[Rfam]
RNA: Selenocysteine transfer RNA
RNA sequence: GGAAGGCAUUCGUAUCCGGUGGUACGGCUGGACUUCAAAUCCAGUUGGGGGUGUCAGACACUCCCGGGUCGGUUCGACUCCGGCUGCCUUCC
Numbered sequence: 001g002g003a004a005g006g007c008a009u010u011c012g013u014a015u016c017c018g019g020u021g022g023u024a025c026g027g028c029u030g031g032a033c034u035u036c037a038a039a040u041c042c043a044g045u046u047g048g049g050g051g052u053g054u055c056a057g058a059c060a061c062u063c064c065c066g067g068g069u070c071g072g073u074u075c076g077a078c079u080c081c082g083g084c085u086g087c088c089u090u091c092c
Base pairs, nucleotide, nucleotide: 001092002091003090004089005088006087007086008085011026012025013024014023015022016021027045028044029043030042031041032040047065048064049063050062051061069083070082071081072080